[Rfam]
RNA sequence: AUACUCUGGUUUCUCUUCAGAUCAUAUAAAUCUUUUGCCUUUUACUAAAAAUUUCCAUGGAGAGGAAUAGCAGAAGUUGCAAAGGCUGAUACAAAAUUCAUAAUAUAAUACUAUACUGGGGUUUA
Numbered sequence: 001a002u003a004c005u006c007u008g009g010u011u012u013c014u015c016u017u018c019a020g021a022u023c024a025u026a027u028a029a030a031u032c033u034u035u036u037g038c039c040u041u042u043u044a045c046u047a048a049a050a051a052u053u054u055c056c057a058u059g060g061a062g063a064g065g066a067a068u069a070g071c072a073g074a075a076g077u078u079g080c081a082a083a084g085g086c087u088g089a090u091a092c093a094a095a096a097u098u099c100a101u102a103a104u105a106u107a108a109u110a111c112u113a114u115a116c117u118g119g120g121g122u123u124u125a
Stems, first nucleotide, its partner, number of pairs: 004084002009068011028054004033049003104125001107123003111119001
Record summary: U5 spliceosomal RNA: a 125-nucleotide RNA from Phasianus colchicus. The organism belongs to Phasianus, within Eukaryota. A search with the family's covariance model found it, with a score of 57 bits.